[Rfam]
RNA sequence: GUUGGUCAAUUUGGCAGUUGACUGUAACUCUGCUUCUGGAGAACUAGGGUGGUGGAAUAAUCCUCACUUGGAGUUACAAUUCUUAACUCCGCACGUAGAGAGUAGUGUCUCACUUGAACUUAAUGUGAACAUUCUGGCUUGAGUGUAAAUUUGGGCCAGGAGGUUCUUAAAUAGCGGGGGAUUCAGCCCGAGGCUGGAAACAGAGCAGGGAAAACCCGCAGCAUUAAGUGGCAGUGAGAUAGCACACUUGAGUGAUUGGUAGUUGGGGUUGCCGAGUGAGAUGGUUGGACUGCUU
Numbered sequence: 001g002u003u004g005g006u007c008a009a010u011u012u013g014g015c016a017g018u019u020g021a022c023u024g025u026a027a028c029u030c031u032g033c034u035u036c037u038g039g040a041g042a043a044c045u046a047g048g049g050u051g052g053u054g055g056a057a058u059a060a061u062c063c064u065c066a067c068u069u070g071g072a073g074u075u076a077c078a079a080u081u082c083u084u085a086a087c088u089c090c091g092c093a094c095g096u097a098g099a100g101a102g103u104a105g106u107g108u109c110u111c112a113c114u115u116g117a118a119c120u121u122a123a124u125g126u127g128a129a130c131a132u133u134c135u136g137g138c139u140u141g142a143g144u145g146u147a148a149a150u151u152u153g154g155g156c157c158a159g160g161a162g163g164u165u166c167u168u169a170a171a172u173a174g175c176g177g178g179g180g181a182u183u184c185a186g187c188c189c190g191a192g193g194c195u196g197g198a199a200a201c202a203g204a205g206c207a208g209g210g211a212a213a214a215c216c217c218g219c220a221g222c223a224u225u226a227a228g229u230g231g232c233a234g235u236g237a238g239a240u241a242g243c244a245c246a247c248u249u250g251a252g253u254g255a256u257u258g259g260u261a262g263u264u265g266g267g268g269u270u271g272c273c274g275a276g277u278g279a280g281a282u283g284g285u286u287g288g289a290c291u292g293c294u295u
Stems, first nucleotide, its partner, number of pairs: 001044003004023008028041003049295001051293001054290001058287005064279008077271007089259003092254003096250001100249004105245004109238002114234003118229009127166004132161013167173001174219005187210003194203003
RNA: Metazoan signal recognition particle RNA